[Rfam]
RNA sequence: GUAGUUGAAUCUUCAAAUUUUUGGAAUGCUCCAAAUUC
Dot-bracket structure: ..(.((((....)))).).((((((....))))))...
Numbered sequence: 001g002u003a004g005u006u007g008a009a010u011c012u013u014c015a016a017a018u019u020u021u022u023g024g025a026a027u028g029c030u031c032c033a034a035a036u037u038c
Stems, first nucleotide, its partner, number of pairs: 003018001005016004020035006
Shown here is a 38-nucleotide sequence from Solanum tuberosum, a member of the family "Plastid psbT antisense RNA". Lineage of the source: Eukaryota > lamiids > Solanaceae > Solanoideae > Solanum. The family has 93 seed sequences and 1,866 matches in Rfam 15.1. Plastid-psbT-asRNA is an antisense RNA (asRNA) motif reported in Plastids It has been shown that psbT expression is controlled by two antisense RNAs originated from psbN transcription by the nuclear-encoded polymerase (NEP), in which the short antisense RNA hybridizes to psbT CDS, thereby stabilizing psbT transcript while blocking its translation during photooxidative stress. The literature on the family includes a 2023 paper in Plant Commun by Richter et al., "Retrograde signaling in plants: A critical review focusing on the GUN pathway and beyond".